[Rfam]
RNA: Plastid-psbA-4 3UTR RNA
Organism: Nelumbo nucifera
RNA sequence: AAGUUGAAGGAACAAUAUCCAAUUUCUUGUUCUAUCAAGAGGUUGGUAUUGUUCCUUUAU
Numbered sequence: 001a002a003g004u005u006g007a008a009g010g011a012a013c014a015a016u017a018u019c020c021a022a023u024u025u026c027u028u029g030u031u032c033u034a035u036c037a038a039g040a041g042g043u044u045g046g047u048a049u050u051g052u053u054c055c056u057u058u059a060u
Base pairs, nucleotide, nucleotide: 006058007057008056009055010054011053012052013051014050015049016048017047021044022043024041025040026039027038028037029036